Background
A member of the RNA family "c-di-AMP riboswitch aptamer (ydaO/yuaA leader)" from Marinisporobacter balticus, 133 nucleotides long. Lineage of the source: Bacteria > Bacillati > Peptostreptococcales > Thermotaleaceae > Marinisporobacter.

[Rfam]
RNA sequence: CAUGUAAUAUCGCUGAAUUCUUUCAUGGAAGAAGCGGGGAAACCAAUUUUUUGGGGUGAAUUUCUUUUGAAAAGGGUUAUCUUCUUUCGACCCUAACCCGUCAGCUAACCUCGCAAGCGUAGAAAGAGGAAAA
Numbered sequence: 001c002a003u004g005u006a007a008u009a010u011c012g013c014u015g016a017a018u019u020c021u022u023u024c025a026u027g028g029a030a031g032a033a034g035c036g037g038g039g040a041a042a043c044c045a046a047u048u049u050u051u052u053g054g055g056g057u058g059a060a061u062u063u064c065u066u067u068u069g070a071a072a073a074g075g076g077u078u079a080u081c082u083u084c085u086u087u088c089g090a091c092c093c094u095a096a097c098c099c100g101u102c103a104g105c106u107a108a109c110c111u112c113g114c115a116a117g118c119g120u121a122g123a124a125a126g127a128g129g130a131a132a133a
Stems, first nucleotide, its partner, number of pairs: 011119004018033005034114006044053002054099003062071003074093004
Dot-bracket structure: ..........((((...(((((......)))))((((((....((......))(((.....(((....)))..((((............))))...))).........)))))).))))..............